[Rfam]
RNA: MIR1435 microRNA precursor family
RNA sequence: UGACUUUGGUCAAAGUCAAACUCUUUCAAGUUUGACCAAGUUUAUAGAAAAAAUGUAGUGACAUUUUCAACACAAGGCAAAUAUGCUGUAAAAAUAUAUUCAGCUUUGGAUUUAAUGAAACUAAUUUGUUGUUGUAAAUGUUGGUAUAUUUUUCUAUAAAUUUGAUCGAACUUAUAGUUUGACUUUGACCAAAGUCAA
Number, nucleotide and partner (000 for none) at each position: 001u000002g000003a000004c000005u193006u192007u191008g190009g189010u000011c187012a186013a185014a184015g183016u182017c181018a180019a179020a178021c177022u176023c000024u000025u000026u000027c000028a000029a000030g000031u170032u169033u168034g167035a166036c000037c000038a000039a000040g000041u000042u000043u000044a000045u156046a155047g154048a153049a152050a151051a150052a149053a000054u000055g000056u146057a145058g000059u000060g142061a141062c140063a139064u138065u137066u136067u000068c134069a133070a000071c000072a129073c128074a127075a126076g125077g000078c000079a000080a000081a000082u000083a000084u000085g000086c000087u000088g000089u000090a000091a000092a000093a000094a000095u000096a000097u000098a000099u000100u000101c000102a000103g000104c000105u000106u000107u000108g000109g000110a000111u000112u000113u000114a000115a000116u000117g000118a000119a000120a000121c000122u000123a000124a000125u076126u075127u074128g073129u072130u000131g000132u000133u069134g068135u000136a066137a065138a064139u063140g062141u061142u060143g000144g000145u057146a056147u000148a000149u052150u051151u050152u049153u048154c047155u046156a045157u000158a000159a000160a000161u000162u000163u000164g000165a000166u035167c034168g033169a032170a031171c000172u000173u000174a000175u000176a022177g021178u020179u019180u018181g017182a016183c015184u014185u013186u012187g011188a000189c009190c008191a007192a006193a005194g000195u000196c000197a000198a000